The family of this 183-nucleotide sequence from Bacillus sp. MUM 116 is "Lysine riboswitch aptamer". Gene Ontology term of the family: lysine biosynthetic process. The base pairs follow the family's consensus structure, which is taken from published work.
[Rfam]
RNA sequence: AGUGUAGGUAGAGGUGCGAGCUUCAAAAGUAGUGGUUCUGAGAAGGAUGAGCUUCGAAGAAGAAUCAUGAAAGGGGAUGUUCGCCGAAGUGAAGAAAGUCUCAUUCUUUCUUUUGCUGGUCCUGUGUUGAAUAAAUACCGGAUUGUCAAGACUAAUAGUACGUCUUGGAGAGCUAUCUUACAU
Numbered sequence: 001a002g003u004g005u006a007g008g009u010a011g012a013g014g015u016g017c018g019a020g021c022u023u024c025a026a027a028a029g030u031a032g033u034g035g036u037u038c039u040g041a042g043a044a045g046g047a048u049g050a051g052c053u054u055c056g057a058a059g060a061a062g063a064a065u066c067a068u069g070a071a072a073g074g075g076g077a078u079g080u081u082c083g084c085c086g087a088a089g090u091g092a093a094g095a096a097a098g099u100c101u102c103a104u105u106c107u108u109u110c111u112u113u114u115g116c117u118g119g120u121c122c123u124g125u126g127u128u129g130a131a132u133a134a135a136u137a138c139c140g141g142a143u144u145g146u147c148a149a150g151a152c153u154a155a156u157a158g159u160a161c162g163u164c165u166u167g168g169a170g171a172g173c174u175a176u177c178u179u180a181c182a183u
Base pairs, nucleotide, nucleotide: 006178007177008176009175010174011173016084017083018082019081020080021079022077023076024075032068033067034066035065036064037063038062039061088117089116090115091114092112093111094110095109096108097107098106118144119143120142121141122140124138125137126136127135128134146168147167148166149165150164151163152162

NCBI's taxonomy places the organism under Bacteria, Bacillati, Bacillota, Bacilli, Bacillus. A search with the family's covariance model found it, with a score of 135 bits.